[Rfam]
RNA sequence: AGCUAAAUGAUGAGUGUGGAUCUUUAAAUCUCAUGACGGUCAUCUGAGAUGCUUUCAUUAGUGUCCAGGAUGAUACAACUCCCAUCUCUGAUGGCU
Numbered sequence: 001a002g003c004u005a006a007a008u009g010a011u012g013a014g015u016g017u018g019g020a021u022c023u024u025u026a027a028a029u030c031u032c033a034u035g036a037c038g039g040u041c042a043u044c045u046g047a048g049a050u051g052c053u054u055u056c057a058u059u060a061g062u063g064u065c066c067a068g069g070a071u072g073a074u075a076c077a078a079c080u081c082c083c084a085u086c087u088c089u090g091a092u093g094g095c096u
Base pairs, nucleotide, nucleotide: 001096002095003094004093050063051062052061